The record is a 74-nucleotide RNA sequence from Alligator mississippiensis, which matches "Mammalian CPEB3 ribozyme" in Rfam.
The mammalian CPEB3 ribozyme is a self cleaving RNA located in the second intron of the CPEB3 gene which belongs to a family of genes regulating messenger RNA polyadenylation. This ribozyme is highly conserved and found only in mammals. The CPEB3 ribozyme is structurally and biochemically related to the human hepatitis delta virus (HDV) ribozyme and the HDV ribozyme is proposed to have arisen from the human transcriptome.
It scores 55 bits against the family's covariance model.
The source organism's lineage runs through Eukaryota, Eumetazoa, Tetrapoda, Crocodylia and Alligator.
Nucleotides: 074
Stems, first nucleotide, its partner, number of pairs: 012041003018074007025037003046063007
Number, partner (000 for none) and nucleotide at each position: 001000a002000c003000u004000g005000c006000a007000g008000a009000a010000a011000a012041g013040a014039c015000c016000c017000c018074a019073g020072c021071a022070g023069a024068a025037g026036c027035a028000c029000u030000c031000a032000u033000g034000u035027u036026g037025c038000a039014g040013u041012c042000c043000u044000g045000u046063c047062a048061g049060a050059u051058u052057u053000u054000a055000a056000u057052g058051a059050a060049u061048c062047u063046g064000c065000g066000a067000a068024u069023u070022c071021u072020g073019u074018u